[Rfam]
RNA: serC leader
Organism: Rhodoblastus sp.
RNA sequence: CAGCGGGACACCUCCCCCAACGGGAGGCGCCCAUCUGAGAGGAUGGCACAU
Number, nucleotide and partner (000 for none) at each position: 001c000002a000003g000004c000005g000006g000007g000008a000009c000010a000011c027012c026013u025014c024015c023016c022017c000018c000019a000020a000021c000022g016023g015024g014025a013026g012027g011028c000029g000030c000031c046032c045033a044034u043035c042036u041037g000038a000039g000040a000041g036042g035043a034044u033045g032046g031047c000048a000049c000050a000051u000